[Rfam]
RNA sequence: AUGCCUUAAACUAAUGAGUAAGGAAGAUAACGAUUCGGGAUGACAACUGAAUCUUCACUGCUAAUGUGAGACCAGUCCUUGAAUGGGUAAAGGUUGCCCCUAAGGUGACUCACCUACUUUGCAUAAUGCCUGGGAGUUGUGAUCUGUCCA
Numbered sequence: 001a002u003g004c005c006u007u008a009a010a011c012u013a014a015u016g017a018g019u020a021a022g023g024a025a026g027a028u029a030a031c032g033a034u035u036c037g038g039g040a041u042g043a044c045a046a047c048u049g050a051a052u053c054u055u056c057a058c059u060g061c062u063a064a065u066g067u068g069a070g071a072c073c074a075g076u077c078c079u080u081g082a083a084u085g086g087g088u089a090a091a092g093g094u095u096g097c098c099c100c101u102a103a104g105g106u107g108a109c110u111c112a113c114c115u116a117c118u119u120u121g122c123a124u125a126a127u128g129c130c131u132g133g134g135a136g137u138u139g140u141g142a143u144c145u146g147u148c149c150a
Stems, first nucleotide, its partner, number of pairs: 004023005032053007054070005084150005091145007100134002103131005113121001

Background:
A member of the RNA family "U12 minor spliceosomal RNA" from Carlito syrichta, 150 nucleotides long. The organism belongs to Carlito, within Eukaryota. Rfam 15.1 lists 2,106 matches to the family in 1,170 species.